[Rfam]
RNA sequence: CGUAUAAAAUGUUUACAGGCGCUGUUACGCUAGAGACUAAUGAGUUUCCGAGAUUUAAAUUUUUAGGAAAUAUAUUUGAAAAAUCACCAAAAAUUGUAUGAUUCAACUUAUUGGAGAAUGGUGGGCCCGGCAGGACUUGAACCUGCGACCACUCCG
Numbered sequence: 001c002g003u004a005u006a007a008a009a010u011g012u013u014u015a016c017a018g019g020c021g022c023u024g025u026u027a028c029g030c031u032a033g034a035g036a037c038u039a040a041u042g043a044g045u046u047u048c049c050g051a052g053a054u055u056u057a058a059a060u061u062u063u064u065a066g067g068a069a070a071u072a073u074a075u076u077u078g079a080a081a082a083a084u085c086a087c088c089a090a091a092a093a094u095u096g097u098a099u100g101a102u103u104c105a106a107c108u109u110a111u112u113g114g115a116g117a118a119u120g121g122u123g124g125g126c127c128c129g130g131c132a133g134g135a136c137u138u139g140a141a142c143c144u145g146c147g148a149c150c151a152c153u154c155c156g
Base pairs, nucleotide, nucleotide: 024054025053026052034047035046036045037044071081073079120153121152122151123150124149128147129146131145132144133143134142
RNA: Bacterial antisense RNA HPnc0260